[Rfam]
RNA sequence: CUGGCAUAGCAACCAUAGUAGAAGCGCUCACAUUGCGGCCCUGUCAGAUUCUAACGAAUAUGCGAAUUCUGCU
Dot-bracket structure: ............[[..((((((((((.......)))]]......((.((((....)))).))....)))))))
About this RNA: This 73-nucleotide sequence from Alligator mississippiensis belongs to the Rfam family "Mammalian CPEB3 ribozyme". It scores 51 bits against the family's covariance model.